[Rfam]
RNA sequence: ACCAUCCUUUUCUUGGGGUUGCACUACUGUCUAAUGAGUGCAUAAUGAGGGCGGUGCUGCUAAUGCCUAUACAAUGCACCUGCAUCAACUAGAACUUUGCUUUAUCUUGGUACAAUUUUCGGAAAA
Numbered sequence: 001a002c003c004a005u006c007c008u009u010u011u012c013u014u015g016g017g018g019u020u021g022c023a024c025u026a027c028u029g030u031c032u033a034a035u036g037a038g039u040g041c042a043u044a045a046u047g048a049g050g051g052c053g054g055u056g057c058u059g060c061u062a063a064u065g066c067c068u069a070u071a072c073a074a075u076g077c078a079c080c081u082g083c084a085u086c087a088a089c090u091a092g093a094a095c096u097u098u099g100c101u102u103u104a105u106c107u108u109g110g111u112a113c114a115a116u117u118u119u120c121g122g123a124a125a126a
Stems, first nucleotide, its partner, number of pairs: 006018004021060003026055007038046002082113001084111004090104004095099001
RNA: U4atac minor spliceosomal RNA
Organism: Colobus angolensis